[Rfam]
The family of this 82-nucleotide RNA sequence from Carlito syrichta is "Small nucleolar RNA SNORD115". On this family, see Cavaille et al., Proc Natl Acad Sci U S A 2000: "Identification of brain-specific and imprinted small nucleolar RNA genes exhibiting an unusual genomic organization". By type it is a C/D-box small nucleolar RNA. Rfam 15.1 lists 3,387 matches to the family in 131 species. The organism belongs to Carlito, within Eukaryota. Its family is annotated with nucleolus and RNA processing in the Gene Ontology. It scores 65 bits against the family's covariance model.

RNA sequence: GAGUGAAUGAUGAGGAGUUUAUAUUGCCUUGAAGAGUGAUGAUGACUUAAAUAUCACAUACAAUGGCAUGACGCUGAGGCCC
Dot-bracket structure: (.((.(.((..............................................................)).)...)).)